[Rfam]
Notes: Purine riboswitch aptamer: a 102-nucleotide sequence from Bacillus benzoevorans.
RNA sequence: AAUAUUAUUUUAAAAUAACUUCGUAUAAUCUUGGGGAUAUGGCCCAAAAGUUUCUACCAAGCUGCCGUAAAUAGCUUGACUACGAGUUGAUGAUGAGGAGAU
Numbered sequence: 001a002a003u004a005u006u007a008u009u010u011u012a013a014a015a016u017a018a019c020u021u022c023g024u025a026u027a028a029u030c031u032u033g034g035g036g037a038u039a040u041g042g043c044c045c046a047a048a049a050g051u052u053u054c055u056a057c058c059a060a061g062c063u064g065c066c067g068u069a070a071a072u073a074g075c076u077u078g079a080c081u082a083c084g085a086g087u088u089g090a091u092g093a094u095g096a097g098g099a100g101a102u
Stems, first nucleotide, its partner, number of pairs: 018088001020086006029049001031047005058078007
The family's consensus secondary structure is taken from published work.
The family has 133 seed sequences and 4,097 matches in Rfam 15.1.
From the family's description: Riboswitches are metabolite binding domains within certain messenger RNAs that serve as precision sensors for their corresponding targets.